[Rfam]
RNA: DUF3800-VI RNA
Organism: Trinickia symbiotica
RNA sequence: UAGUCGGGAGCGCUGAGACAUCGGUGCGAUGGACGAUUGUUCCACCCGGCUU
Numbered sequence: 001u002a003g004u005c006g007g008g009a010g011c012g013c014u015g016a017g018a019c020a021u022c023g024g025u026g027c028g029a030u031g032g033a034c035g036a037u038u039g040u041u042c043c044a045c046c047c048g049g050c051u052u
Stems, first nucleotide, its partner, number of pairs: 002051007010027006030044003033040001